[Rfam]
RNA sequence: GCUGCGUAAAUGCUUCUUAGCCCAAGAGAGCUAGUACCAUCCCUGCGUUGGCAUACAUCUCAUAAUAGAACGAUAUAGUAAAGUGGAUUGUAACCCCUUGAGAAUAUGAAAAUAUUUAAGAGAGAAAUCCAAUAGUUAUAUCGCAAUGGUUAGCCGUAUGACCAUAGGAGAGUUACCUGAAACAUGAUGGAAUAUUGUAGAAUUCAUUAGCGUUCACAUUAUUUUUUUACGGUUAU
Numbered sequence: 001g002c003u004g005c006g007u008a009a010a011u012g013c014u015u016c017u018u019a020g021c022c023c024a025a026g027a028g029a030g031c032u033a034g035u036a037c038c039a040u041c042c043c044u045g046c047g048u049u050g051g052c053a054u055a056c057a058u059c060u061c062a063u064a065a066u067a068g069a070a071c072g073a074u075a076u077a078g079u080a081a082a083g084u085g086g087a088u089u090g091u092a093a094c095c096c097c098u099u100g101a102g103a104a105u106a107u108g109a110a111a112a113u114a115u116u117u118a119a120g121a122g123a124g125a126a127a128u129c130c131a132a133u134a135g136u137u138a139u140a141u142c143g144c145a146a147u148g149g150u151u152a153g154c155c156g157u158a159u160g161a162c163c164a165u166a167g168g169a170g171a172g173u174u175a176c177c178u179g180a181a182a183c184a185u186g187a188u189g190g191a192a193u194a195u196u197g198u199a200g201a202a203u204u205c206a207u208u209a210g211c212g213u214u215c216a217c218a219u220u221a222u223u224u225u226u227u228u229a230c231g232g233u234u235a236u
Base pairs, nucleotide, nucleotide: 001052002051004048005047006046007045008044010040011039012038014036017034018033019032020031021030022028071143072142073141074140075139076138077137078136084131085130086129087128088127089126096122098120147164148163149162150161151160153233154232155231156230157229158228159184166178167177168176169174189226190224191223192222193221194220196218197217198216
RNA: IS605-orfB-I RNA